The record is a 152-nucleotide RNA, which matches "RT-14 RNA" in Rfam. Rfam's curators put it in the seed alignment.
RNA sequence: AUAUGGCAUAAAAUUAUCAGAUAUGUAAGUUCAAGGACUUACAUAGAGUAUAUAUGCCAUACAAGUUUUAUUCCCUCCGUGAAAUCGGUAAAAAUAUAAAUAUAAAAGCACGUUCUAGUAACAAGAAAUUCUUGUGAAAGAGAGUGCUUUUU
Numbered sequence: 001a002u003a004u005g006g007c008a009u010a011a012a013a014u015u016a017u018c019a020g021a022u023a024u025g026u027a028a029g030u031u032c033a034a035g036g037a038c039u040u041a042c043a044u045a046g047a048g049u050a051u052a053u054a055u056g057c058c059a060u061a062c063a064a065g066u067u068u069u070a071u072u073c074c075c076u077c078c079g080u081g082a083a084a085u086c087g088g089u090a091a092a093a094a095u096a097u098a099a100a101u102a103u104a105a106a107a108g109c110a111c112g113u114u115c116u117a118g119u120a121a122c123a124a125g126a127a128a129u130u131c132u133u134g135u136g137a138a139a140g141a142g143a144g145u146g147c148u149u150u151u152u
Stems, first nucleotide, its partner, number of pairs: 003060007015050001024043008077088003104152001105150007113142003121135005

Rfam classes the family as a small RNA.